[Rfam]
RNA sequence: GCCGAGCUUGCAACCCUAGUGGGGCUUUGAGGUGCUGGAACAUUGGCCCAGUAUUAGCGGCUUGGGUUUGGGAUGCCUAUCUAUUGGCCCGCCAUUCCAAGCCAAGGGUUGAACCUUGUGGCUCGAGCGAAGGCUCUGGGUCACAGAGUUUCUAAAGAGGAGGGAACCGGAUAAGGUUGGCUUCACAAAGCAACAACUACCUCCCGCUCUUGGCCGUGGAAGGAUUACAGAUCAGUGUCACAUGGAUCCACCAUGGCCCUCUAUAUUGUCCCAAUUGAACUAAAAUCUUU
Numbered sequence: 001g002c003c004g005a006g007c008u009u010g011c012a013a014c015c016c017u018a019g020u021g022g023g024g025c026u027u028u029g030a031g032g033u034g035c036u037g038g039a040a041c042a043u044u045g046g047c048c049c050a051g052u053a054u055u056a057g058c059g060g061c062u063u064g065g066g067u068u069u070g071g072g073a074u075g076c077c078u079a080u081c082u083a084u085u086g087g088c089c090c091g092c093c094a095u096u097c098c099a100a101g102c103c104a105a106g107g108g109u110u111g112a113a114c115c116u117u118g119u120g121g122c123u124c125g126a127g128c129g130a131a132g133g134c135u136c137u138g139g140g141u142c143a144c145a146g147a148g149u150u151u152c153u154a155a156a157g158a159g160g161a162g163g164g165a166a167c168c169g170g171a172u173a174a175g176g177u178u179g180g181c182u183u184c185a186c187a188a189a190g191c192a193a194c195a196a197c198u199a200c201c202u203c204c205c206g207c208u209c210u211u212g213g214c215c216g217u218g219g220a221a222g223g224a225u226u227a228c229a230g231a232u233c234a235g236u237g238u239c240a241c242a243u244g245g246a247u248c249c250a251c252c253a254u255g256g257c258c259c260u261c262u263a264u265a266u267u268g269u270c271c272c273a274a275u276u277g278a279a280c281u282a283a284a285a286u287c288u289u290u
Stems, first nucleotide, its partner, number of pairs: 014023003029289005036282003041277002043274003046270001048268001050266001053264002057260001059258004064249007072241001074240002078237002084235004089230001091228001092223002095221005101214009111151004116146010126135003152157001159204005172193001177188003
Background
Plant signal recognition particle RNA: a 290-nucleotide RNA sequence from Prunus persica. The family's consensus secondary structure is taken from published work. The match comes from Rfam's covariance-model search (151 bits). A reference for the family is Wild et al. (2002), "Towards the structure of the mammalian signal recognition particle", Curr Opin Struct Biol. The organism belongs to Prunus, within Eukaryota.